[Rfam]
RNA sequence: CGCAUAUUUCGCACAGGCGGAGCUCGACCGCCGACCUCGCUGAUGGUGGCGUUCAUCGAUGACCACAGGGCCGAGUACGGAGUCGAGCCGAUCUGCAGAGUGCUGCCGAUUGCUCCG
Numbered sequence: 001c002g003c004a005u006a007u008u009u010c011g012c013a014c015a016g017g018c019g020g021a022g023c024u025c026g027a028c029c030g031c032c033g034a035c036c037u038c039g040c041u042g043a044u045g046g047u048g049g050c051g052u053u054c055a056u057c058g059a060u061g062a063c064c065a066c067a068g069g070g071c072c073g074a075g076u077a078c079g080g081a082g083u084c085g086a087g088c089c090g091a092u093c094u095g096c097a098g099a100g101u102g103c104u105g106c107c108g109a110u111u112g113c114u115c116c117g
Stems, first nucleotide, its partner, number of pairs: 016032005078117005089112002092109002095106004